[Rfam]
RNA sequence: CAGAAUUGUCCUAAGUCAAACCUCUUCAAAUUGGACCAAGCUAUAGAAAGAAUGCUAAUAUCCACAAUGUCUAAUAUAUAUAAUAUGACAAUAUAUUUCAUAAUGAAUCUAAUGAAGCAAAUUUGGUGUCGUAGAUGUUAAUAUAUUUUUAUAUAAACUUGGUCAAACUUAAUGAAGUUUGACUUAGGACAAACCCAU
Numbered sequence: 001c002a003g004a005a006u007u008g009u010c011c012u013a014a015g016u017c018a019a020a021c022c023u024c025u026u027c028a029a030a031u032u033g034g035a036c037c038a039a040g041c042u043a044u045a046g047a048a049a050g051a052a053u054g055c056u057a058a059u060a061u062c063c064a065c066a067a068u069g070u071c072u073a074a075u076a077u078a079u080a081u082a083a084u085a086u087g088a089c090a091a092u093a094u095a096u097u098u099c100a101u102a103a104u105g106a107a108u109c110u111a112a113u114g115a116a117g118c119a120a121a122u123u124u125g126g127u128g129u130c131g132u133a134g135a136u137g138u139u140a141a142u143a144u145a146u147u148u149u150u151a152u153a154u155a156a157a158c159u160u161g162g163u164c165a166a167a168c169u170u171a172a173u174g175a176a177g178u179u180u181g182a183c184u185u186a187g188g189a190c191a192a193a194c195c196c197a198u
Stems, first nucleotide, its partner, number of pairs: 006192004011187011023175002026172001031167002034164002044153002047150005053143002057139006064132002070126002073123003